[Rfam]
RNA sequence: GACAUCGUCUUAACAUUCAGGGUCCAGCAUAGAUAAAAACCCCGACUAUCGGGGUUUUUUGUUAUCUGAUUCUUGUGUAUGAGUAGUCAUGACUAUUCAUACAUCAGAGAUUGGUCUGUUUGCUUGGAAUUGAAAUUGGGCUCAUAGCCCUUUUUUU
Dot-bracket structure: ...................................(((((((((.....)))))))))...............................................................................((((.....)))).......
The family of this 157-nucleotide RNA sequence from Vibrio ruber is "Gammaprotebacteria rimP leader". A reference for the family is Naville and Gautheret (2010), "Premature terminator analysis sheds light on a hidden world of bacterial transcriptional attenuation", Genome Biol. The organism belongs to Vibrio ruber, within Bacteria. It is annotated as a cis-regulatory leader. A search with the family's covariance model found it, with a score of 73 bits.